[Rfam]
RNA: Flavo-1 RNA
RNA sequence: AAAAGUCUGCGUAAGGGAUAGAAGCGGCAUCCUUUUAUGUUGGGGUUCACCAUAAAAGAUAGAGUGGAUAGCCCGACCCGAA
Numbered sequence: 001a002a003a004a005g006u007c008u009g010c011g012u013a014a015g016g017g018a019u020a021g022a023a024g025c026g027g028c029a030u031c032c033u034u035u036u037a038u039g040u041u042g043g044g045g046u047u048c049a050c051c052a053u054a055a056a057a058g059a060u061a062g063a064g065u066g067g068a069u070a071g072c073c074c075g076a077c078c079c080g081a082a
Stems, first nucleotide, its partner, number of pairs: 015074003019070002024065002029060003033055002037053003041049002